[Rfam]
RNA sequence: UGGCUGUGAUGACAAGAACAUACAUUUCUCGAUGCUGAGACUUGAUUUGUUCAAGGACCAAAAUUUUGAUGAGAUCUAUGCGUGUCUGAGCCAG
Numbered sequence: 001u002g003g004c005u006g007u008g009a010u011g012a013c014a015a016g017a018a019c020a021u022a023c024a025u026u027u028c029u030c031g032a033u034g035c036u037g038a039g040a041c042u043u044g045a046u047u048u049g050u051u052c053a054a055g056g057a058c059c060a061a062a063a064u065u066u067u068g069a070u071g072a073g074a075u076c077u078a079u080g081c082g083u084g085u086c087u088g089a090g091c092c093a094g
Base pairs, nucleotide, nucleotide: 001093002092003091004090
The record is a 94-nucleotide RNA sequence from Panicum miliaceum, which matches "small nucleolar RNA snoR126" in Rfam. It scores 68 bits against the family's covariance model. The organism belongs to Panicum sect. Panicum, within Eukaryota. The family has 4 seed sequences and 423 matches in Rfam 15.1. Rfam links the family to the GO terms RNA processing and nucleolus.